[Rfam]
A member of the RNA family "c-di-AMP riboswitch aptamer (ydaO/yuaA leader)" from Nocardia stercoris, 197 nucleotides long.
RNA sequence: ACCCCGAGAACGCUCAGGGGCGAGGGCGGGGAACCCACGUCCCAUCACGGGAACGUUCCCUGGCAAGGGAAGUGGGAGAAGCCGGAAACGGCCACUCCCUGGGGUGAAGUCCCGGCGCACCGCCAGGUACGCCAGGGCCGGACGGCCUCUCAGUCCGAACCCGACAGCUCACCUCGCAGGCGCGGACGAGAGGAAGA
Numbered sequence: 001a002c003c004c005c006g007a008g009a010a011c012g013c014u015c016a017g018g019g020g021c022g023a024g025g026g027c028g029g030g031g032a033a034c035c036c037a038c039g040u041c042c043c044a045u046c047a048c049g050g051g052a053a054c055g056u057u058c059c060c061u062g063g064c065a066a067g068g069g070a071a072g073u074g075g076g077a078g079a080a081g082c083c084g085g086a087a088a089c090g091g092c093c094a095c096u097c098c099c100u101g102g103g104g105u106g107a108a109g110u111c112c113c114g115g116c117g118c119a120c121c122g123c124c125a126g127g128u129a130c131g132c133c134a135g136g137g138c139c140g141g142a143c144g145g146c147c148u149c150u151c152a153g154u155c156c157g158a159a160c161c162c163g164a165c166a167g168c169u170c171a172c173c174u175c176g177c178a179g180g181c182g183c184g185g186a187c188g189a190g191a192g193g194a195a196g197a
Stems, first nucleotide, its partner, number of pairs: 002025002026177006036101002102162003110137003140156004
A search with the family's covariance model found it, with a score of 43 bits.